[Rfam]
RNA sequence: ACCGCCACUUUUCACGUUCCUUGCUUUCAUUGGGCUGCGGUUGACCCAGACAGAAAGCUGAUUAAUCCGUAGGGAGCUAUAAUG
Numbered sequence: 001a002c003c004g005c006c007a008c009u010u011u012u013c014a015c016g017u018u019c020c021u022u023g024c025u026u027u028c029a030u031u032g033g034g035c036u037g038c039g040g041u042u043g044a045c046c047c048a049g050a051c052a053g054a055a056a057g058c059u060g061a062u063u064a065a066u067c068c069g070u071a072g073g074g075a076g077c078u079a080u081a082a083u084g
Stems, first nucleotide, its partner, number of pairs: 016077007023058006032047003
The record is an 84-nucleotide sequence from Candidatus Schmidhempelia bombi, which matches "RpsF leader" in Rfam. From the family's description: Conserved and widely distributed to many bacterial species RNA structure. It precedes operon containing rpsF, which encodes ribosomal protein S6. The motif also precedes operon containing rpsR, which encodes ribosomal protein S18. The RNA was shown to interact with S6:S18 protein dimer in vitro. Its family is annotated with protein binding and negative regulation of translation in the Gene Ontology. It scores 75 bits against the family's covariance model. The family's RNA type in Rfam is cis-regulatory leader. The pairing is the family consensus, mapped onto this sequence.